[Rfam]
RNA sequence: AAAGGCAGGGGCCAUAGCAGAAGGGCUCAUGAUGCAGCCUUUCAGAUUCCAACAAAUCAGUGAAUUCUGCU
Number, nucleotide and partner (000 for none) at each position: 001a000002a000003a000004g000005g000006c000007a000008g041009g040010g039011g038012c037013c000014a000015u000016a071017g070018c069019a068020g067021a066022a065023g035024g000025g033026c000027u000028c000029a000030u000031g000032a000033u025034g000035c023036a000037g012038c011039c010040u009041u008042u000043c060044a000045g058046a057047u056048u055049c000050c000051a000052a000053c000054a000055a048056a047057u046058c045059a000060g043061u000062g000063a000064a000065u022066u021067c020068u019069g018070c017071u016
Record summary
Mammalian CPEB3 ribozyme: a 71-nucleotide sequence from Alligator mississippiensis. Rfam links the family to the GO term RNA nuclease activity. Pairs were carried over by alignment from the consensus structure, which is taken from published work. Lineage of the source: Eukaryota > Opisthokonta > Metazoa > Vertebrata > Alligator.